Rfam assigns this 262-nucleotide part of an RNA from Methanimicrococcus blatticola to the family "Archaeal large subunit ribosomal RNA".
It scores 2896 bits against the family's covariance model.
The literature on the family includes a 2001 paper in Science by Yusupov et al., "Crystal structure of the ribosome at 5.5 A resolution".
Its Rfam clan is "LSU clan".

RNA sequence: GAGUUUAUUUUGAUGGCGAAGGCUAACUAUUCUCAUAGGCAGCCAAAGCGAAAGCAACAUGUGCGCAACCUUCGGGUGAGGCACGGCGUAUACAAGUGCGCGGAGUCAUCGGAAUAAGACCCGAAGCCGGGCGAUCUAGGCGUGGGCAGGUUGAAGCGUGGCGAAAGCUGCGUGGAGGACCGCAAGUGGUAUUGAUCUGCAAAUCAUUCACGUGACCCACGUCUCGGAGUGAAAUGCUAAUCUAGCCCGGCAUCCGCUGGUU
Numbered sequence: 001g002a003g004u005u006u007a008u009u010u011u012g013a014u015g016g017c018g019a020a021g022g023c024u025a026a027c028u029a030u031u032c033u034c035a036u037a038g039g040c041a042g043c044c045a046a047a048g049c050g051a052a053a054g055c056a057a058c059a060u061g062u063g064c065g066c067a068a069c070c071u072u073c074g075g076g077u078g079a080g081g082c083a084c085g086g087c088g089u090a091u092a093c094a095a096g097u098g099c100g101c102g103g104a105g106u107c108a109u110c111g112g113a114a115u116a117a118g119a120c121c122c123g124a125a126g127c128c129g130g131g132c133g134a135u136c137u138a139g140g141c142g143u144g145g146g147c148a149g150g151u152u153g154a155a156g157c158g159u160g161g162c163g164a165a166a167g168c169u170g171c172g173u174g175g176a177g178g179a180c181c182g183c184a185a186g187u188g189g190u191a192u193u194g195a196u197c198u199g200c201a202a203a204u205c206a207u208u209c210a211c212g213u214g215a216c217c218c219a220c221g222u223c224u225c226g227g228a229g230u231g232a233a234a235u236g237c238u239a240a241u242c243u244a245g246c247c248c249g250g251c252a253u254c255c256g257c258u259g260g261u262u
Stems, first nucleotide, its partner, number of pairs: 005117013021044004027038004048055002061084004068077003087100004120260002123257001127250006136226001138224009147214001149181004156173007186211004191207002194205002228238003